The record is a 441-nucleotide part of an RNA from Cytospora schulzeri, which matches "Ascomycota telomerase RNA" in Rfam. The literature on the family includes a 2013 paper in Nucleic Acids Res by Qi et al., "The common ancestral core of vertebrate and fungal telomerase RNAs". The organism belongs to Cytospora, within Eukaryota. Rfam 15.1 lists 475 matches to the family in 456 species. Rfam classes the family as a non-coding RNA gene.

[Rfam]
RNA sequence: AUCACACGGAAAGAGGCUUCACCUGACGCGGCUGGCAAUCAUUGACACAGCAUCCUGCGGCGAUUUUGGCAUUGCUGUUUCUAUGACGACUGGGUAUCAUUGGGCACGUUUGAGAUGAGGGCUUUGGGCGAGUUGCGGGUGUGAUGACCCAUGGGACUCAACGAUCGCGUUUGAGGGGCGAUGUUUGCCUACUGCUGUGCGCCUGGUGAGACCAGUUGCUUGGUUUGCGGCAGGAACGGGACCCAUCUCGAGUUGGAGUCAAAGUUUUGUACUUGUCCGGUUCUGCUGUGGGCCUUGCUGGCGGUUCUCAUCAAGGCAAGCUGUAUGGAGGUAACGCGCUCUGAGAACAGGUCUGUGUUUAGAAAGGGACCGGGCUCGUGAAGAGCAGUCCCAGCCGCUCUCUCUCCAGAAAUGGCGAGAGAGCGGCCCCUUUUUUUGAGG
Numbered sequence: 001a002u003c004a005c006a007c008g009g010a011a012a013g014a015g016g017c018u019u020c021a022c023c024u025g026a027c028g029c030g031g032c033u034g035g036c037a038a039u040c041a042u043u044g045a046c047a048c049a050g051c052a053u054c055c056u057g058c059g060g061c062g063a064u065u066u067u068g069g070c071a072u073u074g075c076u077g078u079u080u081c082u083a084u085g086a087c088g089a090c091u092g093g094g095u096a097u098c099a100u101u102g103g104g105c106a107c108g109u110u111u112g113a114g115a116u117g118a119g120g121g122c123u124u125u126g127g128g129c130g131a132g133u134u135g136c137g138g139g140u141g142u143g144a145u146g147a148c149c150c151a152u153g154g155g156a157c158u159c160a161a162c163g164a165u166c167g168c169g170u171u172u173g174a175g176g177g178g179c180g181a182u183g184u185u186u187g188c189c190u191a192c193u194g195c196u197g198u199g200c201g202c203c204u205g206g207u208g209a210g211a212c213c214a215g216u217u218g219c220u221u222g223g224u225u226u227g228c229g230g231c232a233g234g235a236a237c238g239g240g241a242c243c244c245a246u247c248u249c250g251a252g253u254u255g256g257a258g259u260c261a262a263a264g265u266u267u268u269g270u271a272c273u274u275g276u277c278c279g280g281u282u283c284u285g286c287u288g289u290g291g292g293c294c295u296u297g298c299u300g301g302c303g304g305u306u307c308u309c310a311u312c313a314a315g316g317c318a319a320g321c322u323g324u325a326u327g328g329a330g331g332u333a334a335c336g337c338g339c340u341c342u343g344a345g346a347a348c349a350g351g352u353c354u355g356u357g358u359u360u361a362g363a364a365a366g367g368g369a370c371c372g373g374g375c376u377c378g379u380g381a382a383g384a385g386c387a388g389u390c391c392c393a394g395c396c397g398c399u400c401u402c403u404c405u406c407c408a409g410a411a412a413u414g415g416c417g418a419g420a421g422a423g424c425g426g427c428c429c430c431u432u433u434u435u436u437u438g439a440g441g
Base pairs, nucleotide, nucleotide: 240260241259242258243256244255245254262274263273264272265271